Rfam assigns this 135-nucleotide RNA from Paenibacillus anaericanus to the family "c-di-AMP riboswitch aptamer (ydaO/yuaA leader)".
RNA sequence: GUUAUAUCAUAGCCGAAUUCCCUGACCGGGGAACGGGGGAACCAUUUUGGGUGAAUUGAUCUCGCUUCAGAGGGAUCAUAGGGGACCUUCAACCGAAUCCUUAAGCUAACCUCGUAGGCAUUGGAAGGAGCUUGA
Numbered sequence: 001g002u003u004a005u006a007u008c009a010u011a012g013c014c015g016a017a018u019u020c021c022c023u024g025a026c027c028g029g030g031g032a033a034c035g036g037g038g039g040a041a042c043c044a045u046u047u048u049g050g051g052u053g054a055a056u057u058g059a060u061c062u063c064g065c066u067u068c069a070g071a072g073g074g075a076u077c078a079u080a081g082g083g084g085a086c087c088u089u090c091a092a093c094c095g096a097a098u099c100c101u102u103a104a105g106c107u108a109a110c111c112u113c114g115u116a117g118g119c120a121u122u123g124g125a126a127g128g129a130g131c132u133u134g135a
Stems, first nucleotide, its partner, number of pairs: 012119003018032003033115006049100003057078007081094002